[Rfam]
RNA sequence: CGAGGCGAAUGCCCCGCGGCCUCUGACCGACUGGACCCUGACGUACUUCCCCAACGCCAGGUGCCGAUCGUCGGUCAGAGACCACGGGGCAUUCACCACCACCG
Numbered sequence: 001c002g003a004g005g006c007g008a009a010u011g012c013c014c015c016g017c018g019g020c021c022u023c024u025g026a027c028c029g030a031c032u033g034g035a036c037c038c039u040g041a042c043g044u045a046c047u048u049c050c051c052c053a054a055c056g057c058c059a060g061g062u063g064c065c066g067a068u069c070g071u072c073g074g075u076c077a078g079a080g081a082c083c084a085c086g087g088g089g090c091a092u093u094c095a096c097c098a099c100c101a102c103c104g
Base pairs, nucleotide, nucleotide: 010091011090012089013088014087015086016085018083019082021080022079023078024077025076026075027074028073029072030071031070032066033065034064037061038060039059040058042056043055044054
Dot-bracket structure: .........(((((((.((.((((((((((((((..((((.(((.........))).))))..)))...))))))))))).)).))))))).............